Alphaproteobacterial ar14: a 120-nucleotide sequence from Aquamicrobium sp. LC103. Lineage of the source: Bacteria > Pseudomonadati > Alphaproteobacteria > Phyllobacteriaceae > Aquamicrobium. About the family: Smr14C2 was renamed NfeR1 (Nodule Formation Efficiency RNA) highly expressed in salt stress and during the symbiotic interaction on legume roots. The pairing is the family consensus, mapped onto this sequence.
[Rfam]
RNA sequence: CGAAUUUCGUCAGGGUAUCCUCCUCCCACCCUGACGGAUACGACCGACCAUCUCCUCCUCCCGAUAGUCGGUCGACCCAAACGACACCCGCCGGACCUCCUCCCCCGGCGGGUGUUGUUG
Number, nucleotide and partner (000 for none) at each position: 001c000002g000003a000004a000005u000006u000007u037008c036009g035010u034011c033012a032013g031014g030015g029016u000017a000018u000019c000020c000021u000022c000023c000024u000025c000026c000027c000028a000029c015030c014031c013032u012033g011034a010035c009036g008037g007038a000039u000040a000041c000042g073043a072044c071045c070046g069047a068048c067049c000050a065051u064052c000053u000054c000055c000056u000057c000058c000059u000060c000061c000062c000063g000064a051065u050066a000067g048068u047069c046070g045071g044072u043073c042074g000075a000076c000077c000078c000079a000080a000081a000082c000083g000084a115085c114086a113087c112088c111089c110090g109091c108092c107093g106094g105095a000096c000097c000098u000099c000100c000101u000102c000103c000104c000105c094106c093107g092108g091109c090110g089111g088112g087113u086114g085115u084116u000117g000118u000119u000120g000
Rfam 15.1 lists 784 matches to the family in 332 species.